[Rfam]
RNA sequence: AGCGCAAAGGGAGACAGUGACGCGCCGGGGGUAGGAGACGGUCACCGCAGCAAGACUUCGGCGCAGAGUCAAUGGUGAGACCGGCCCAUGCGGU
Numbered sequence: 001a002g003c004g005c006a007a008a009g010g011g012a013g014a015c016a017g018u019g020a021c022g023c024g025c026c027g028g029g030g031g032u033a034g035g036a037g038a039c040g041g042u043c044a045c046c047g048c049a050g051c052a053a054g055a056c057u058u059c060g061g062c063g064c065a066g067a068g069u070c071a072a073u074g075g076u077g078a079g080a081c082c083g084g085c086c087c088a089u090g091c092g093g094u
Stems, first nucleotide, its partner, number of pairs: 001094001003092004009087003013070003022064008040082002042078005
RNA: c-di-GMP-II-GAG riboswitch aptamer